[Rfam]
RNA sequence: AAGUCUUUUAAAAUAGUCCAGAGAGGCUGAUAAAGAUACUUCAUAGUUAACAGUUAGUUAUUUAUGUAUACAAAGUCCUUAUACCUCUAUGGUGUAAGGGCUUUUUUUA
Number, nucleotide and partner (000 for none) at each position: 001a000002a000003g037004u036005c035006u034007u033008u032009u000010a000011a000012a000013a000014u029015a028016g027017u026018c025019c000020a000021g000022a000023g000024a000025g018026g017027c016028u015029g014030a000031u000032a008033a007034a006035g005036a004037u003038a000039c000040u068041u000042c066043a065044u064045a063046g062047u060048u000049a000050a058051c057052a000053g000054u000055u000056a000057g051058u050059u000060a047061u000062u046063u045064a044065u043066g042067u000068a040069u000070a000071c000072a104073a103074a102075g101076u100077c099078c098079u097080u096081a095082u094083a093084c092085c091086u000087c000088u000089a000090u000091g085092g084093u083094g082095u081096a080097a079098g078099g077100g076101c075102u074103u073104u072105u000106u000107u000108u000109a000